[Rfam]
RNA sequence: UGUGUUGCCCUCCAGGAAAUGUGUGUUGCUCUGAUGUAAUUAGGCUGACAUACAUUUCCCUGGUAGCCA
Numbered sequence: 001u002g003u004g005u006u007g008c009c010c011u012c013c014a015g016g017a018a019a020u021g022u023g024u025g026u027u028g029c030u031c032u033g034a035u036g037u038a039a040u041u042a043g044g045c046u047g048a049c050a051u052a053c054a055u056u057u058c059c060c061u062g063g064u065a066g067c068c069a
Stems, first nucleotide, its partner, number of pairs: 001069002004067006015059014030044006

The record is a 69-nucleotide RNA from Macaca mulatta, which matches "mir-563 microRNA precursor family" in Rfam. The organism belongs to Macaca, within Eukaryota. Gene Ontology terms of the family: miRNA-mediated post-transcriptional gene silencing and RISC complex. The literature on the family includes a 2010 paper in BMC Res Notes by Brameier, "Genome-wide comparative analysis of microRNAs in three non-human primates". The family has 3 seed sequences and 23 matches in Rfam 15.1. Rfam's curators put it in the seed alignment.